[Rfam]
RNA sequence: AUGUACCCCUCGCACACGCCGGUUCUGAGCGCGCCGCCCACACCCGCCUGACGACCGCUCGCUACGUUGUGUCAGCC
Numbered sequence: 001a002u003g004u005a006c007c008c009c010u011c012g013c014a015c016a017c018g019c020c021g022g023u024u025c026u027g028a029g030c031g032c033g034c035c036g037c038c039c040a041c042a043c044c045c046g047c048c049u050g051a052c053g054a055c056c057g058c059u060c061g062c063u064a065c066g067u068u069g070u071g072u073c074a075g076c077c
Stems, first nucleotide, its partner, number of pairs: 002016003006012001020036004025031001048075006
Dot-bracket structure: .(((.(.....).)))...((((.(.....).))))...........((((((................))))))..
Background:
Shown here is a 77-nucleotide RNA from Xanthomonas campestris, a member of the family "Xanthomonas sRNA sX9". On this family, see Schmidtke et al., Nucleic Acids Res 2011: "Genome-wide transcriptome analysis of the plant pathogen Xanthomonas identifies sRNAs with putative virulence functions". A search with the family's covariance model found it, with a score of 79 bits. Rfam 15.1 lists 309 matches to the family in 52 species.